Rfam assigns this 147-nucleotide RNA from Plasmodium chabaudi to the family "small nucleolar RNA snoR27". It is annotated as an H/ACA-box small nucleolar RNA. Rfam links the family to the GO terms nucleolus and RNA processing.
[Rfam]
RNA sequence: UAUGCUGAUUUAGCCACAGUGGCAUUUUUCAUUAUUUAAUACUUUUGGUGCCAUCUGCUAGAAAUCAGCUACAACAAAUUCAUAAUUUUAGGAACCAUUAAAAAAAUUAUUAAUUUUUUCUAUUGGGCCAUAUUUAUGAGUACAACA
Numbered sequence: 001u002a003u004g005c006u007g008a009u010u011u012a013g014c015c016a017c018a019g020u021g022g023c024a025u026u027u028u029u030c031a032u033u034a035u036u037u038a039a040u041a042c043u044u045u046u047g048g049u050g051c052c053a054u055c056u057g058c059u060a061g062a063a064a065u066c067a068g069c070u071a072c073a074a075c076a077a078a079u080u081c082a083u084a085a086u087u088u089u090a091g092g093a094a095c096c097a098u099u100a101a102a103a104a105a106a107u108u109a110u111u112a113a114u115u116u117u118u119u120c121u122a123u124u125g126g127g128c129c130a131u132a133u134u135u136a137u138g139a140g141u142a143c144a145a146c147a
Base pairs, nucleotide, nucleotide: 004069005068006067007066008065009064010063011062017057018056019055021052022051023050024049025048026047079140080139081138082137083136091129092128095125101119102118103117104116105115106114107113108112
Overview:
Lineage of the source: Eukaryota > Sar > Alveolata > Plasmodiidae > Plasmodium chabaudi. The sequence is in the family's curated seed alignment.